[Rfam]
RNA sequence: AGUGUAGAGGUUGGUGAAGUUGCUGUCUUCUAUCAGGUAAUUCACCCUUCUCUCACUAA
Dot-bracket structure: .(((.(((((..((...(...(((...........)))...)...)).))))))))...
RNA: mir-7398 microRNA precursor family